[Rfam]
RNA: SAM riboswitch aptamer (S box leader)
RNA sequence: AAUUUAUAAAGAAGAGGUAAGAGAAUAGGCUCUAUGACCCUCUGGCAACCACCUUGUAUGGCAGGUGCCAAUUCCUAUCCCGAUUAAACGGGAGCAUAUAAAUU
Numbered sequence: 001a002a003u004u005u006a007u008a009a010a011g012a013a014g015a016g017g018u019a020a021g022a023g024a025a026u027a028g029g030c031u032c033u034a035u036g037a038c039c040c041u042c043u044g045g046c047a048a049c050c051a052c053c054u055u056g057u058a059u060g061g062c063a064g065g066u067g068c069c070a071a072u073u074c075c076u077a078u079c080c081c082g083a084u085u086a087a088a089c090g091g092g093a094g095c096a097u098a099u100a101a102a103u104u
Base pairs, nucleotide, nucleotide: 001104002103003102004101005100006099007098008097013043014042015041016040017039021032022031023030026077027076028075029074044069045068046067047066049065050064052061053060073096078093079092080091081090082089